[Rfam]
RNA sequence: UAGCAUGUUUCCAAGGGCUAUGGAUGCUUGUGGCCAUGGGAUCUCCCAACUAUGCAAAAGCAAUCUGGAAAGUGUUUGACAGCUCAGGUCACCACAGUACCUUCAGUUGCCACUUAUCUUUCCUAUAAUA
Numbered sequence: 001u002a003g004c005a006u007g008u009u010u011c012c013a014a015g016g017g018c019u020a021u022g023g024a025u026g027c028u029u030g031u032g033g034c035c036a037u038g039g040g041a042u043c044u045c046c047c048a049a050c051u052a053u054g055c056a057a058a059a060g061c062a063a064u065c066u067g068g069a070a071a072g073u074g075u076u077u078g079a080c081a082g083c084u085c086a087g088g089u090c091a092c093c094a095c096a097g098u099a100c101c102u103u104c105a106g107u108u109g110c111c112a113c114u115u116a117u118c119u120u121u122c123c124u125a126u127a128a129u130a
Stems, first nucleotide, its partner, number of pairs: 011039002016035007067123006082110002086102003
The family of this 130-nucleotide RNA sequence from Castor canadensis is "Small nucleolar RNA SNORA44". A reference for the family is Huttenhofer et al. (2001), "RNomics: an experimental approach that identifies 201 candidates for novel, small, non-messenger RNAs in mouse", EMBO J. Rfam describes the family as follows. ACA44 is a member of the H/ACA class of snoRNA that guide the sites of modification of uridines to pseudouridines. The family's RNA type in Rfam is H/ACA-box small nucleolar RNA. A search with the family's covariance model found it, with a score of 120 bits. Pairs were carried over by alignment from the consensus structure, which was predicted with PFOLD. Clan: SNORA44 clan.